[Rfam]
Nucleotides: 112
Stems, first nucleotide, its partner, number of pairs: 003111001025089004
Number, partner (000 for none) and nucleotide at each position: 001000c002000u003111a004000u005000c006000c007000u008000a009000c010000u011000u012000g013000a014000u015000g016000a017000a018000a019000u020000c021000a022000u023000u024000a025089c026088g027087g028086a029000u030000g031000u032000a033000a034000a035000g036000g037000g038000u039000c040000c041000a042000a043000a044000g045000g046000a047000c048000u049000c050000g051000u052000u053000u054000g055000u056000c057000c058000g059000a060000g061000a062000g063000c064000g065000c066000a067000u068000a069000a070000a071000a072000a073000c074000c075000a076000u077000g078000u079000g080000g081000a082000u083000u084000c085000u086028u087027c088026c089025g090000u091000u092000g093000c094000c095000u096000u097000c098000c099000u100000u101000c102000u103000g104000a105000u106000u107000a108000u109000u110000c111003u112000u